[Rfam]
RNA sequence: GGUCUUAUAGUCUAGUGGUUAGGACAGCGGUUUUUGAGACGAUCAUGUGAUCCCCAUUACCGUUAGCCCCGGUUCGAACCCGGGUAAGACCU
Number, nucleotide and partner (000 for none) at each position: 001g091002g090003u089004c088005u087006u086007a085008u000009a000010g025011u024012c023013u022014a000015g000016u000017g000018g000019u000020u000021a000022g013023g012024a011025c010026a000027g063028c062029g061030g060031u059032u000033u000034u000035u000036g000037a000038g000039a000040c000041g000042a000043u000044c000045a000046u000047g000048u000049g000050a000051u000052c000053c000054c000055c000056a000057u000058u000059a031060c030061c029062g028063u027064u000065a000066g000067c000068c084069c083070c082071g081072g080073u000074u000075c000076g000077a000078a000079c000080c072081c071082g070083g069084g068085u007086a006087a005088g004089a003090c002091c001092u000
Shown here is a 92-nucleotide RNA sequence from Penicillium olsonii, a member of the family "tRNA".
The match comes from Rfam's covariance-model search (57 bits).
NCBI's taxonomy places the organism under Eukaryota, Fungi, Dikarya, leotiomyceta, Penicillium.
From the family's description: Transfer RNA (tRNA) molecules are approximately 80 nucleotides in length.